[Rfam]
RNA sequence: AAAGCAGGGGUUGUGUGUAUCGGUGUUGUGCCUUUGAAUGCACUUAUUGCCGAAAGAGUCCCCUGCAACAUUGAGUUGGGGAAAAUGGGCAGUUGUGUAUUGUCCUUCUGUUGAUACUUCAACAAUCAUUUUCCCCAUAUCU
Numbered sequence: 001a002a003a004g005c006a007g008g009g010g011u012u013g014u015g016u017g018u019a020u021c022g023g024u025g026u027u028g029u030g031c032c033u034u035u036g037a038a039u040g041c042a043c044u045u046a047u048u049g050c051c052g053a054a055a056g057a058g059u060c061c062c063c064u065g066c067a068a069c070a071u072u073g074a075g076u077u078g079g080g081g082a083a084a085a086u087g088g089g090c091a092g093u094u095g096u097g098u099a100u101u102g103u104c105c106u107u108c109u110g111u112u113g114a115u116a117c118u119u120c121a122a123c124a125a126u127c128a129u130u131u132u133c134c135c136c137a138u139a140u141c142u
Base pairs, nucleotide, nucleotide: 004066005065006064007063008062009061010060015043016042017041018040019039020038078136079135080134081133082132083131084130085129086128087127088126092123093122094121095120
RNA: small nucleolar RNA snoR135
Organism: Nelumbo nucifera